[Rfam]
This 359-nucleotide part of an RNA from uncultured marine group II euryarchaeote 37F11 belongs to the Rfam family "Archaeal large subunit ribosomal RNA". The sequence is in the family's curated seed alignment. The base pairs follow the family's consensus structure, which is taken from published work. The organism belongs to Candidatus Poseidoniales, within Archaea.
RNA sequence: CGGAUACAAGUAUCGCGAGGGAACUCGGCAAAAUGGCUCCGUAACUUCGGGAGAAGGAGUGCCAGAUCAGAGAUGAUCUGGUCGCAGUGACUAGGGAGCUCCGACUGUUUAAUAAAAACAUAGGGGACUGCCAGAUCGAAAGGUUGUGUAUAGUCCCUGAAUCCUGCUCAGUGCUGGUAUCUUAAAUCGGGUUUCAACCUGACGAAGGACCAGUAAACAGCGGGGGUAACUAUGACCCUCUUAAGGUAGCGUAAUACCUUGUCGCUUAAUUGGCGACUUGCAUGAAUGGUCCAACGAGGGCUCCACUGUCCCCGCGAUACGUCCGGCGAAAUUGACUUUACUGGCGCACAGUCCAGUAC
Numbered sequence: 001c002g003g004a005u006a007c008a009a010g011u012a013u014c015g016c017g018a019g020g021g022a023a024c025u026c027g028g029c030a031a032a033a034u035g036g037c038u039c040c041g042u043a044a045c046u047u048c049g050g051g052a053g054a055a056g057g058a059g060u061g062c063c064a065g066a067u068c069a070g071a072g073a074u075g076a077u078c079u080g081g082u083c084g085c086a087g088u089g090a091c092u093a094g095g096g097a098g099c100u101c102c103g104a105c106u107g108u109u110u111a112a113u114a115a116a117a118a119c120a121u122a123g124g125g126g127a128c129u130g131c132c133a134g135a136u137c138g139a140a141a142g143g144u145u146g147u148g149u150a151u152a153g154u155c156c157c158u159g160a161a162u163c164c165u166g167c168u169c170a171g172u173g174c175u176g177g178u179a180u181c182u183u184a185a186a187u188c189g190g191g192u193u194u195c196a197a198c199c200u201g202a203c204g205a206a207g208g209a210c211c212a213g214u215a216a217a218c219a220g221c222g223g224g225g226g227u228a229a230c231u232a233u234g235a236c237c238c239u240c241u242u243a244a245g246g247u248a249g250c251g252u253a254a255u256a257c258c259u260u261g262u263c264g265c266u267u268a269a270u271u272g273g274c275g276a277c278u279u280g281c282a283u284g285a286a287u288g289g290u291c292c293a294a295c296g297a298g299g300g301c302u303c304c305a306c307u308g309u310c311c312c313c314g315c316g317a318u319a320c321g322u323c324c325g326g327c328g329a330a331a332u333u334g335a336c337u338u339u340a341c342u343g344g345c346g347c348a349c350a351g352u353c354c355a356g357u358a359c
Stems, first nucleotide, its partner, number of pairs: 001325004010320008019311003036060005045050001061082009083087001095304007102296002106120003123158008131148001134145004163289002166221003171218002173214005180209003187202005222240006241245001261277006340357005